[Rfam]
RNA sequence: AUUAUGUCCAGUCUAAUUCUGCAUCAUGUCACUGGGAUAUUGAUGCAGACUCGCUUUUGGACAAUAACAAAGUCUUUUAUUAUCCUUGUGCUUGUGGCAACAUUAUCAGCUCAAUGCACACGAGAAACGUAGAAGAACAACU
Numbered sequence: 001a002u003u004a005u006g007u008c009c010a011g012u013c014u015a016a017u018u019c020u021g022c023a024u025c026a027u028g029u030c031a032c033u034g035g036g037a038u039a040u041u042g043a044u045g046c047a048g049a050c051u052c053g054c055u056u057u058u059g060g061a062c063a064a065u066a067a068c069a070a071a072g073u074c075u076u077u078u079a080u081u082a083u084c085c086u087u088g089u090g091c092u093u094g095u096g097g098c099a100a101c102a103u104u105a106u107c108a109g110c111u112c113a114a115u116g117c118a119c120a121c122g123a124g125a126a127a128c129g130u131a132g133a134a135g136a137a138c139a140a141c142u
Stems, first nucleotide, its partner, number of pairs: 005063006019048008027039004073136008085124006
RNA: Small nucleolar RNA psi28S-1192